[Rfam]
RNA: c-di-GMP-I riboswitch aptamer
Organism: Paenibacillus albus
RNA sequence: AACCGAAAAAGGCAUAACUUGGGAAACCGAGUGACGCAAAGCUAUAGGGGCUUCGUUUGCGAAAUUUAGCAAAAAAGCUAGCCAGUUGCCGAA
Number, nucleotide and partner (000 for none) at each position: 001a000002a000003c000004c000005g000006a000007a000008a000009a000010a000011g000012g037013c036014a000015u000016a000017a032018c031019u030020u029021g028022g027023g000024a000025a000026a000027c022028c021029g020030a019031g018032u017033g000034a000035c000036g013037c012038a000039a000040a087041g086042c085043u084044a000045u000046a000047g083048g082049g079050g078051c077052u000053u000054c000055g000056u073057u072058u071059g070060c000061g000062a000063a000064a000065u000066u000067u000068a000069g000070c059071a058072a057073a056074a000075a000076a000077g051078c050079u049080a000081g000082c048083c047084a043085g042086u041087u040088g000089c000090c000091g000092a000093a000